RNA sequence: CUCUUAUCAAGAACGGUGGAGGGGCUCGGCCCUAUGAAGCCUGGCAACCGGCAGCAUGUAGAAACAAUAAAGCGCGGUGCCAAAUCCGACGACAGUUGAGUUAGUCGAGAGAUGAGAG
Number, nucleotide and partner (000 for none) at each position: 001c118002u117003c116004u115005u114006a113007u112008c111009a000010a000011g000012a000013a042014c000015g041016g040017u039018g000019g000020a000021g032022g031023g030024g000025c000026u089027c088028g087029g086030c023031c022032c021033u000034a000035u000036g000037a000038a000039g017040c016041c015042u013043g081044g080045c079046a078047a000048c077049c076050g073051g000052c072053a000054g000055c000056a000057u000058g000059u000060a000061g000062a000063a000064a000065c000066a000067a000068u000069a000070a000071a000072g052073c050074g000075c000076g049077g048078u046079g045080c044081c043082a000083a000084a000085u110086c029087c028088g027089a026090c107091g106092a105093c104094a000095g102096u000097u000098g000099a000100g000101u000102u095103a000104g093105u092106c091107g090108a000109g000110a085111g008112a007113u006114g005115a004116g003117a002118g001